Overview: Shown here is a 97-nucleotide RNA sequence from Nicotiana tabacum, a member of the family "MIR6152 microRNA precursor family".
RNA sequence: UAGACAGAUUAUUGUAUUCGACUGUAUUUACGGCGAGAAACAUGGGAUUACAACUGUUUUUAAACGGAAAAUGAAUCAAUUAACAUAAUAGACUCCU
Numbered sequence: 001u002a003g004a005c006a007g008a009u010u011a012u013u014g015u016a017u018u019c020g021a022c023u024g025u026a027u028u029u030a031c032g033g034c035g036a037g038a039a040a041c042a043u044g045g046g047a048u049u050a051c052a053a054c055u056g057u058u059u060u061u062a063a064a065c066g067g068a069a070a071a072u073g074a075a076u077c078a079a080u081u082a083a084c085a086u087a088a089u090a091g092a093c094u095c096c097u
Stems, first nucleotide, its partner, number of pairs: 003095002009091007017083002020081002023078002026076005034066002037060006043053001
Its family is annotated with miRNA-mediated post-transcriptional gene silencing and RISC complex in the Gene Ontology. The match comes from Rfam's covariance-model search (84 bits).